[Rfam]
A member of the RNA family "Small nucleolar RNA SNORD103/SNORD85" from Larus smithsonianus, 86 nucleotides long. Pairs were carried over by alignment from the consensus structure. On this family, see Huttenhofer et al., EMBO J 2001: "RNomics: an experimental approach that identifies 201 candidates for novel, small, non-messenger RNAs in mouse". Rfam links the family to the GO terms RNA processing and nucleolus.
RNA sequence: UCUGGCGAUGACGACACCCUUGCCCUCACUGAGGACAGCCUUCGCUGAUGAGAGCACCUUCAUGCGCUCAGUGGAGCCGAGCCAGA
Numbered sequence: 001u002c003u004g005g006c007g008a009u010g011a012c013g014a015c016a017c018c019c020u021u022g023c024c025c026u027c028a029c030u031g032a033g034g035a036c037a038g039c040c041u042u043c044g045c046u047g048a049u050g051a052g053a054g055c056a057c058c059u060u061c062a063u064g065c066g067c068u069c070a071g072u073g074g075a076g077c078c079g080a081g082c083c084a085g086a
Stems, first nucleotide, its partner, number of pairs: 001086006